[Rfam]
RNA sequence: UUACUACCCUGGGGGGGCUUGGAAAAGCUGAGAGAGACGUCUAGUCUUGACCCUUAUUACUUGAUCUAGGUAAUGCUAGCGAAAGGAAGAGGUAUAGCGACUGA
Number, nucleotide and partner (000 for none) at each position: 001u000002u000003a000004c000005u000006a000007c091008c000009c089010u088011g054012g053013g052014g051015g000016g048017g028018c027019u026020u025021g000022g000023a000024a000025a020026a019027g018028c017029u000030g000031a000032g000033a000034g000035a047036g046037a045038c044039g000040u000041c000042u000043a000044g038045u037046c036047u035048u016049g000050a000051c014052c013053c012054u011055u000056a000057u000058u000059a000060c085061u084062u083063g000064a000065u000066c079067u078068a077069g076070g000071u000072a000073a000074u000075g000076c069077u068078a067079g066080c000081g000082a000083a062084a061085g060086g000087a000088a010089g009090a000091g007092g000093u000094a000095u000096a000097g000098c000099g000100a000101c000102u000103g000104a000
RNA: TPP riboswitch aptamer (THI element)